Glycine riboswitch aptamer: a 90-nucleotide sequence from Acetobacter oeni. Rfam describes the family as follows. This family represents the bacterial glycine riboswitch. Its family is annotated with glycine biosynthetic process in the Gene Ontology. It scores 62 bits against the family's covariance model. The organism belongs to Acetobacter, within Bacteria. The base pairs follow the family's consensus structure.
RNA sequence: CCUGUCGCAGAGGGAGAGUCCGGCUUGCAAAGCCGGCGCCGAAGGAGCAACCGCCCCGGAAUCUCUCAGGCUAACGGACCCUGCGGCACU
Numbered sequence: 001c002c003u004g005u006c007g008c009a010g011a012g013g014g015a016g017a018g019u020c021c022g023g024c025u026u027g028c029a030a031a032g033c034c035g036g037c038g039c040c041g042a043a044g045g046a047g048c049a050a051c052c053g054c055c056c057c058g059g060a061a062u063c064u065c066u067c068a069g070g071c072u073a074a075c076g077g078a079c080c081c082u083g084c085g086g087c088a089c090u
Stems, first nucleotide, its partner, number of pairs: 006085005012080002020036004038071003041067002045065003051059002